The record is a 101-nucleotide sequence from Vitis vinifera, which matches "MIR319 microRNA precursor family" in Rfam.
[Rfam]
RNA sequence: CAGAAAUGGGGGUUCCUUUGCAGCCCAAAACAACUCCAUCGCUGAAGAAGAUGAUGAACUUCAUGCUCCUUGUUUUGGACUGAAGGGAGCUCCUAGUUCUU
Number, nucleotide and partner (000 for none) at each position: 001c000002a000003g000004a000005a000006a000007u095008g094009g093010g092011g091012g090013u089014u088015c087016c086017u085018u084019u000020g000021c000022a081023g080024c000025c078026c077027a076028a075029a074030a073031c072032a071033a070034c000035u000036c000037c000038a000039u000040c000041g000042c000043u000044g000045a000046a000047g000048a000049a000050g000051a000052u000053g000054a000055u000056g000057a000058a000059c000060u000061u000062c000063a000064u000065g000066c000067u000068c000069c000070u033071u032072g031073u030074u029075u028076u027077g026078g025079a000080c023081u022082g000083a000084a018085g017086g016087g015088a014089g013090c012091u011092c010093c009094u008095a007096g000097u000098u000099c000100u000101u000